Gut-1 RNA: a 77-nucleotide RNA.
The family's consensus secondary structure is taken from published work.
By type it is a small RNA.

RNA sequence: CAACGAAAUCCACCCUUUCGGGUGGGUGAAAUACCGCUUCGCGGUGCGAUAUACGCCUGCGGCGUGUGAAAUUGCUG
Number, nucleotide and partner (000 for none) at each position: 001c000002a000003a000004c000005g000006a000007a000008a027009u026010c025011c024012a023013c022014c021015c020016u000017u000018u000019c000020g015021g014022g013023u012024g011025g010026g009027u008028g000029a000030a000031a000032u046033a045034c044035c043036g042037c000038u000039u000040c000041g000042c036043g035044g034045u033046g032047c000048g000049a000050u000051a067052u066053a065054c064055g063056c062057c061058u000059g000060c000061g057062g056063c055064g054065u053066g052067u051068g000069a000070a000071a000072u000073u000074g000075c000076u000077g000